[Rfam]
RNA sequence: AGUCUAAUCAACUGUAUGUCGCUCUGGAUAAGAGCGUCUGCCAAAUGCCAAUGC
Numbered sequence: 001a002g003u004c005u006a007a008u009c010a011a012c013u014g015u016a017u018g019u020c021g022c023u024c025u026g027g028a029u030a031a032g033a034g035c036g037u038c039u040g041c042c043a044a045a046u047g048c049c050a051a052u053g054c
Stems, first nucleotide, its partner, number of pairs: 013043001014041003020036006